[Rfam]
RNA sequence: CUGCUGUAACCGCGCUGAUGUGCGACGGAGUCCGAGGUUGCAGUAGAGAGUUUGAGACGUCCAUCGCACCGGGUGACCUUCGACAAGUCAUUCGGCCCGAACACGGGAGAGAACGCUGAGCGUUACAAC
Numbered sequence: 001c002u003g004c005u006g007u008a009a010c011c012g013c014g015c016u017g018a019u020g021u022g023c024g025a026c027g028g029a030g031u032c033c034g035a036g037g038u039u040g041c042a043g044u045a046g047a048g049a050g051u052u053u054g055a056g057a058c059g060u061c062c063a064u065c066g067c068a069c070c071g072g073g074u075g076a077c078c079u080u081c082g083a084c085a086a087g088u089c090a091u092u093c094g095g096c097c098c099g100a101a102c103a104c105g106g107g108a109g110a111g112a113a114c115g116c117u118g119a120g121c122g123u124u125a126c127a128a129c
Stems, first nucleotide, its partner, number of pairs: 001046011069095009
Rfam assigns this 129-nucleotide sequence from Corynebacterium phocae to the family "atpB RNA".